[Rfam]
RNA sequence: CUGGCUCCGGUUCACGCUCCCGCACCCCGCGGAAGCGACCCGGCGCC
Numbered sequence: 001c002u003g004g005c006u007c008c009g010g011u012u013c014a015c016g017c018u019c020c021c022g023c024a025c026c027c028c029g030c031g032g033a034a035g036c037g038a039c040c041c042g043g044c045g046c047c
Stems, first nucleotide, its partner, number of pairs: 003047003007043004015037004020032004
RNA: L31-Actinobacteria ribosomal protein leader